[Rfam]
Rfam assigns this 107-nucleotide RNA from Arachis hypogaea to the family "Plant small nucleolar RNA R71". Taxonomically the source falls in Arachis (Eukaryota, Embryophyta, Pentapetalae, Fabaceae). The literature on the family includes a 2003 paper in Trends Plant Sci by Brown et al., "Plant snoRNAs: functional evolution and new modes of gene expression". It scores 46 bits against the family's covariance model.
RNA sequence: AACAUGUCCGGAGGGCAUUGCCUAGUCAGCAACUUGUACCUCUUCCAAGCUUCAUAGAGGGUCUCACCAUCCUUCUGUCUGAAAGUCUAAACCUCCACCCCAAGCUU
Numbered sequence: 001a002a003c004a005u006g007u008c009c010g011g012a013g014g015g016c017a018u019u020g021c022c023u024a025g026u027c028a029g030c031a032a033c034u035u036g037u038a039c040c041u042c043u044u045c046c047a048a049g050c051u052u053c054a055u056a057g058a059g060g061g062u063c064u065c066a067c068c069a070u071c072c073u074u075c076u077g078u079c080u081g082a083a084a085g086u087c088u089a090a091a092c093c094u095c096c097a098c099c100c101c102a103a104g105c106u107u
Base pairs, nucleotide, nucleotide: 001107005102006101057074058073060071